[Rfam]
RNA sequence: CACUCAAUUAUUAAAAGUUACAUUUGGGUCACUCAAUUAUGGGUAAUGUUACAUUUGGGUCACCCAAUUAUUAAAGGUUACAUUUUGGUCACCCAAUUAUGGGUAAAUCUAAUACACAAAUUGAUAUACUUUUUUUAAAUAUGAAGUGUGACCCAAAUGUAACAUUGCCCAUAAUUGAGUGAUCCAAAUGUAACCUUUAAUAGUUGAGUGACCCAAACGUAACCUUACCCAUAAUUGAGUGACCCAAAUGUAACUUUUAAUAAUUGAGUGA
Numbered sequence: 001c002a003c004u005c006a007a008u009u010a011u012u013a014a015a016a017g018u019u020a021c022a023u024u025u026g027g028g029u030c031a032c033u034c035a036a037u038u039a040u041g042g043g044u045a046a047u048g049u050u051a052c053a054u055u056u057g058g059g060u061c062a063c064c065c066a067a068u069u070a071u072u073a074a075a076g077g078u079u080a081c082a083u084u085u086u087g088g089u090c091a092c093c094c095a096a097u098u099a100u101g102g103g104u105a106a107a108u109c110u111a112a113u114a115c116a117c118a119a120a121u122u123g124a125u126a127u128a129c130u131u132u133u134u135u136u137a138a139a140u141a142u143g144a145a146g147u148g149u150g151a152c153c154c155a156a157a158u159g160u161a162a163c164a165u166u167g168c169c170c171a172u173a174a175u176u177g178a179g180u181g182a183u184c185c186a187a188a189u190g191u192a193a194c195c196u197u198u199a200a201u202a203g204u205u206g207a208g209u210g211a212c213c214c215a216a217a218c219g220u221a222a223c224c225u226u227a228c229c230c231a232u233a234a235u236u237g238a239g240u241g242a243c244c245c246a247a248a249u250g251u252a253a254c255u256u257u258u259a260a261u262a263a264u265u266g267a268g269u270g271a
Base pairs, nucleotide, nucleotide: 002269003268004267005266006265007264008263023248024247025246027244028243029242031240032239033238034237035236036235037234038233039232040231041230042229043228045226046225

The family of this 271-nucleotide RNA sequence from Hibiscus trionum is "MIR2655 microRNA precursor family". The family's consensus secondary structure was predicted with RNAalifold.